This 225-nucleotide RNA from Helicosporidium sp. ATCC 50920 belongs to the Rfam family "Plant small nucleolar RNA U3". Small nucleolar RNAs (snoRNAs) are involved in the processing and modification of rRNA in the nucleolus. There are two main classes of snoRNAs: the box C/D class, and the box H/ACA class. Its family is annotated with nucleolus and RNA processing in the Gene Ontology. The base pairs follow the family's consensus structure, which is taken from published work. The literature on the family includes a 1997 paper in Nucleic Acids Res by Zwieb, "The uRNA database". By type it is a C/D-box small nucleolar RNA. It scores 81 bits against the family's covariance model.

[Rfam]
RNA sequence: UCGACUGUACUUGAACAGGAUCAGUUCUAUAGUUGAUACACCUUGUCUGAGUUCCUCAAACUUGGCAAGCUUCUCAGGAUGGAUGGCGAGUCGUAGCGGAUUGACCUGAGCGUGAUGUCUGCCCGCUGCUGCCCAAGCUUCCUGCUUGGGCUCGCGAGUGCUAGAAGAGUGCCCGCUCCGAGUAUCUAUACCGGACGGAUGGCCAGUUCCGCAUUCCGACAUCCU
Numbered sequence: 001u002c003g004a005c006u007g008u009a010c011u012u013g014a015a016c017a018g019g020a021u022c023a024g025u026u027c028u029a030u031a032g033u034u035g036a037u038a039c040a041c042c043u044u045g046u047c048u049g050a051g052u053u054c055c056u057c058a059a060a061c062u063u064g065g066c067a068a069g070c071u072u073c074u075c076a077g078g079a080u081g082g083a084u085g086g087c088g089a090g091u092c093g094u095a096g097c098g099g100a101u102u103g104a105c106c107u108g109a110g111c112g113u114g115a116u117g118u119c120u121g122c123c124c125g126c127u128g129c130u131g132c133c134c135a136a137g138c139u140u141c142c143u144g145c146u147u148g149g150g151c152u153c154g155c156g157a158g159u160g161c162u163a164g165a166a167g168a169g170u171g172c173c174c175g176c177u178c179c180g181a182g183u184a185u186c187u188a189u190a191c192c193g194g195a196c197g198g199a200u201g202g203c204c205a206g207u208u209c210c211g212c213a214u215u216c217c218g219a220c221a222u223c224c225u
Stems, first nucleotide, its partner, number of pairs: 001036002003033001005032002013027004018022001043068004049063005077224005096212005101206003105202002110172003122160001124158001126156001131151008174197002177194002180191001182189002
The family has 24 seed sequences and 3,759 matches in Rfam 15.1.